[Rfam]
RNA sequence: GGCCGACCGGCGCCGAGUCCCGAAAGGGAGCCGGGGACCCAAGAUCCUUUGGGGUGAAUCCGCGUCAGCGGUAGGGCUAAACCUCCAGCCCGAACCCGUCAGCUAACCCGGUAGGCGUGAUGAGAGGAGAC
Number, nucleotide and partner (000 for none) at each position: 001g000002g000003c000004c000005g000006a000007c000008c000009g000010g000011c117012g116013c115014c114015g000016a000017g000018u029019c028020c027021c000022g000023a000024a000025a000026g000027g020028g019029a018030g112031c111032c110033g109034g108035g107036g000037a000038c000039c000040c051041a050042a000043g000044a000045u000046c000047c000048u000049u000050u041051g040052g097053g096054g095055u000056g000057a000058a000059u000060c071061c070062g069063c068064g000065u000066c000067a000068g063069c062070g061071g060072u000073a000074g091075g090076g089077c088078u000079a000080a000081a000082c000083c000084u000085c000086c000087a000088g077089c076090c075091c074092g000093a000094a000095c054096c053097c052098g000099u000100c000101a000102g000103c000104u000105a000106a000107c035108c034109c033110g032111g031112u030113a000114g014115g013116c012117g011118u000119g000120a000121u000122g000123a000124g000125a000126g000127g000128a000129g000130a000131c000
RNA: c-di-AMP riboswitch aptamer (ydaO/yuaA leader)